[Rfam]
RNA sequence: GCUCCAUCCCCGGGGGACCGCUGAGGCGGUUGAGAGGGGGGCGCCAAAGCCCCCGACCCGCUGAACCUGAUCCGGCUGACACCGGCGUAGGGAGUGGAGCGGCGACCAGUC
Numbered sequence: 001g002c003u004c005c006a007u008c009c010c011c012g013g014g015g016g017a018c019c020g021c022u023g024a025g026g027c028g029g030u031u032g033a034g035a036g037g038g039g040g041g042c043g044c045c046a047a048a049g050c051c052c053c054c055g056a057c058c059c060g061c062u063g064a065a066c067c068u069g070a071u072c073c074g075g076c077u078g079a080c081a082c083c084g085g086c087g088u089a090g091g092g093a094g095u096g097g098a099g100c101g102g103c104g105a106c107c108a109g110u111c
Base pairs, nucleotide, nucleotide: 007098008097009096011060012059013058014057016054017030018029019028020027021026037053038052039051040050066091067090068089069088072085073084074083075082
The family of this 111-nucleotide RNA sequence from Sphingomonas palmae is "TPP riboswitch aptamer (THI element)". Pairs were carried over by alignment from the consensus structure, which is taken from published work.